[Rfam]
RNA sequence: UGAUACCAGGGUCAAAAGGUCGGAAAUCCGAUGUAAGCUUGCUCGCAAGAGGAUUUUUGACCUUGGGACCCGCCAAAAACAUUCAUAAGCAGCCAUUUUUCGUAGAAAAAGGAGCGGAUUAUGAAUGUUUCCCAGGAUUGCGGGAGCACGUAAUGUGAAGCAAUCCGGUAUCA
Dot-bracket structure: (((((((..((((...(((((((((((((..(((.((....)).)).)..)))))))))))))...))))......((((((..((((...(((.((((((...)))))).).))...))))..))))))....(((((((....(((.....)))...))))))))))))))
RNA: Clostridiales-1 RNA
Organism: Lachnoclostridium sp. An14